The family of this 85-nucleotide sequence from Desulfosporosinus acididurans is "pan motif". The family's consensus secondary structure is taken from published work. The match comes from Rfam's covariance-model search (58 bits). The organism belongs to Desulfosporosinus, within Bacteria.

RNA sequence: UGGGCGGUAUCAUUUGAACUGCACCUAUGGAACUUUGACAAUUUAAAUGGUUCUGCCUAGACCUGCUACAGGCAAGGACAGAGGG
Numbered sequence: 001u002g003g004g005c006g007g008u009a010u011c012a013u014u015u016g017a018a019c020u021g022c023a024c025c026u027a028u029g030g031a032a033c034u035u036u037g038a039c040a041a042u043u044u045a046a047a048u049g050g051u052u053c054u055g056c057c058u059a060g061a062c063c064u065g066c067u068a069c070a071g072g073c074a075a076g077g078a079c080a081g082a083g084g085g
Base pairs, nucleotide, nucleotide: 002025003024004022005021006020007019008018010017011016053081054080055079056077057076058075060073062072063071064070